[Rfam]
RNA sequence: AGGGAUCUCGGCCUUCUCUUCCUGGUUCUUCCCAGAGUCGGGAAAAGCUGGGUUGAGAGGGUGGGUAAAAAAAAAA
Numbered sequence: 001a002g003g004g005a006u007c008u009c010g011g012c013c014u015u016c017u018c019u020u021c022c023u024g025g026u027u028c029u030u031c032c033c034a035g036a037g038u039c040g041g042g043a044a045a046a047g048c049u050g051g052g053u054u055g056a057g058a059g060g061g062u063g064g065g066u067a068a069a070a071a072a073a074a075a076a
Base pairs, nucleotide, nucleotide: 014059015058016057017056018055021052022051023050024049025048029044030043031042032041033040
The record is a 76-nucleotide sequence from Aotus nancymaae, which matches "mir-320 microRNA precursor family" in Rfam. The organism belongs to Aotus, within Eukaryota. The base pairs follow the family's consensus structure, which was predicted with RNAalifold. Rfam links the family to the GO terms miRNA-mediated post-transcriptional gene silencing, negative regulation of gene expression and cellular response to glucose stimulus. For this family Rfam cites "Many novel mammalian microRNA candidates identified by extensive cloning and RAKE analysis" (Berezikov et al., Genome Res, 2006).